[Rfam]
RNA sequence: UUGGCGAUAAUUUUUGGUUGGAAUGUAGUGCAUUAGCACUAAACGCUGCCACAAAUAACAUGUCAGUUAUUUCAUCAAAAAUAAA
Numbered sequence: 001u002u003g004g005c006g007a008u009a010a011u012u013u014u015u016g017g018u019u020g021g022a023a024u025g026u027a028g029u030g031c032a033u034u035a036g037c038a039c040u041a042a043a044c045g046c047u048g049c050c051a052c053a054a055a056u057a058a059c060a061u062g063u064c065a066g067u068u069a070u071u072u073c074a075u076c077a078a079a080a081a082u083a084a085a
Base pairs, nucleotide, nucleotide: 012080013079014078015077016076017075020073021072022071023070024069025068026041027040028039029038030037031036045067046066047065048064
RNA: rpsL sRNA